[Rfam]
RNA sequence: GGCCACCUACGGGGGGCUAUCACAUAGGUGAACUCAAGGGUUCACCACUGCUAAACGGAAGACAGAAA
Numbered sequence: 001g002g003c004c005a006c007c008u009a010c011g012g013g014g015g016g017c018u019a020u021c022a023c024a025u026a027g028g029u030g031a032a033c034u035c036a037a038g039g040g041u042u043c044a045c046c047a048c049u050g051c052u053a054a055a056c057g058g059a060a061g062a063c064a065g066a067a068a
Base pairs, nucleotide, nucleotide: 001018002017003016004015006014007013008012027046028045029044030043031042032041033040